[Rfam]
RNA sequence: GUUGGAUAUGGUGACAUGAGACCGGUGACUGUGGGUGGAAAAAUUGUGGGCUCGCUGUGUGCCAUCGCAGGGGUGUUGACCAUUGCAUUACCGGUGCCUGUCAUUGUGUCUAAC
Numbered sequence: 001g002u003u004g005g006a007u008a009u010g011g012u013g014a015c016a017u018g019a020g021a022c023c024g025g026u027g028a029c030u031g032u033g034g035g036u037g038g039a040a041a042a043a044u045u046g047u048g049g050g051c052u053c054g055c056u057g058u059g060u061g062c063c064a065u066c067g068c069a070g071g072g073g074u075g076u077u078g079a080c081c082a083u084u085g086c087a088u089u090a091c092c093g094g095u096g097c098c099u100g101u102c103a104u105u106g107u108g109u110c111u112a113a114c
Stems, first nucleotide, its partner, number of pairs: 001114002004111002007108005013102004018097001020095001037077002040074001049063003

The record is a 114-nucleotide RNA sequence from Sinocyclocheilus anshuiensis, which matches "Potassium channel RNA editing signal" in Rfam. This family represents a group of sequences related to the human potassium channel Kv1.1 hairpin element which directs the efficient modification of an adenosine to inosine by an adenosine deaminase acting on RNA (ADAR). The ADAR modification causes an isoleucine/valine recoding event which lies in the ion-conducting pore of the potassium channel. It is thought that this editing event targets the process of fast inactivation and allows a more rapid recovery from inactivation at negative potentials. The source organism's lineage runs through Eukaryota, Metazoa, Craniata, Actinopteri and Sinocyclocheilus. The family's RNA type in Rfam is cis-regulatory element. A search with the family's covariance model found it, with a score of 104 bits.